[Rfam]
RNA sequence: GAGACGCUUCGCCACAUCCGCCGCAAGACGGAGCCGGAAAGCCGCGGGUCUUGCUAUGCCGAGACAGCCGGGCCGCCUCU
Numbered sequence: 001g002a003g004a005c006g007c008u009u010c011g012c013c014a015c016a017u018c019c020g021c022c023g024c025a026a027g028a029c030g031g032a033g034c035c036g037g038a039a040a041g042c043c044g045c046g047g048g049u050c051u052u053g054c055u056a057u058g059c060c061g062a063g064a065c066a067g068c069c070g071g072g073c074c075g076c077c078u079c080u
Stems, first nucleotide, its partner, number of pairs: 012037002017032004022027001041073003045070003048065006